RNA sequence: UCGGUUCCGGUUCACGUCCGAAUUCUCGGGCGACCCGGCGCC
Numbered sequence: 001u002c003g004g005u006u007c008c009g010g011u012u013c014a015c016g017u018c019c020g021a022a023u024u025c026u027c028g029g030g031c032g033a034c035c036c037g038g039c040g041c042c
Stems, first nucleotide, its partner, number of pairs: 003042003007038004015032007
A member of the RNA family "L31-Actinobacteria ribosomal protein leader" from Mycobacterium sp. 360MFTsu5.1, 42 nucleotides long. The family is grouped with related families in Rfam's "Ribosomal Protein L31 Leader clan". Taxonomically the source falls in Mycobacterium (Bacteria, Bacillati, Actinomycetota, Mycobacteriales). Rfam's curators put it in the seed alignment.